[Rfam]
Nucleotides: 085
Stems, first nucleotide, its partner, number of pairs: 012037002017032003021028002040079004045075003048070003055064003
Number, partner (000 for none) and nucleotide at each position: 001000u002000u003000u004000a005000a006000a007000a008000a009000u010000g011000g012037g013036c014000a015000a016000a017032c018031u019030u020000a021028c022027c023000u024000a025000a026000a027022g028021g029000c030019a031018a032017g033000g034000a035000c036013g037012c038000a039000a040079a041078g042077c043076c044000a045075u046074g047073g048070g049069u050068c051000u052000a053000a054000g055064g056063g057062a058000u059000g060000u061000u062057u063056u064055c065000u066000a067000u068050g069049a070048c071000u072000g073047c074046c075045a076043g077042g078041u079040u080000g081000c082000u083000u084000a085000u